Annotation: This 56-nucleotide sequence from Streptacidiphilus albus belongs to the Rfam family "L17-Actino-Proteobacteria ribosomal protein leader". The family's consensus secondary structure is taken from published work. NCBI's taxonomy places the organism under Bacteria, Bacillati, Kitasatosporales, Streptomycetaceae, Streptacidiphilus. A reference for the family is Eckert and Weinberg (2020), "Discovery of 20 novel ribosomal leader candidates in bacteria and archaea", BMC Microbiol. The family's RNA type in Rfam is cis-regulatory leader.
RNA sequence: GUAGCGGCAACAGUGCUGCUGCGCCCGCCCCGGUACCUGGUACGGCCGGGGGUCGG
Numbered sequence: 001g002u003a004g005c006g007g008c009a010a011c012a013g014u015g016c017u018g019c020u021g022c023g024c025c026c027g028c029c030c031c032g033g034u035a036c037c038u039g040g041u042a043c044g045g046c047c048g049g050g051g052g053u054c055g056g
Stems, first nucleotide, its partner, number of pairs: 001022009025056003028051007